[Rfam]
Nucleotides: 122
Base pairs, nucleotide, nucleotide: 007040009038011037012036013035014034015033046078047077048076049075050074051073052072053071054070055069088117089116090115091114092113093112094111095110096109097108098107
Number, partner (000 for none) and nucleotide at each position: 001000a002000c003000u004000u005000a006000u007040c008000g009038a010000a011037a012036c013035g014034g015033c016000g017000a018000u019000c020000u021000c022000c023000u024000c025000c026000u027000c028000c029000c030000a031000a032000a033015g034014c035013c036012g037011u038009u039000a040007g041000a042000u043000a044000u045000g046078g047077g048076u049075c050074g051073g052072c053071a054070g055069c056000a057000c058000u059000c060000c061000u062000c063000c064000u065000c066000c067000c068000a069055g070054c071053u072052g073051u074050c075049g076048a077047u078046c079000a080000a081000g082000u083000u084000u085000a086000u087000a088117a089116a090115g091114c092113c093112c094111g095110a096109c097108g098107g099000a100000u101000c102000c103000u104000c105000c106000c107098c108097c109096g110095u111094c112093g113092g114091g115090c116089u117088u118000u119000u120000c121000a122000u
Overview: This 122-nucleotide RNA sequence from Rhizobium gallicum belongs to the Rfam family "Alphaproteobacterial ar14". The match comes from Rfam's covariance-model search (94 bits). Rfam classes the family as a small RNA. About the family: Smr14C2 was renamed NfeR1 (Nodule Formation Efficiency RNA) highly expressed in salt stress and during the symbiotic interaction on legume roots.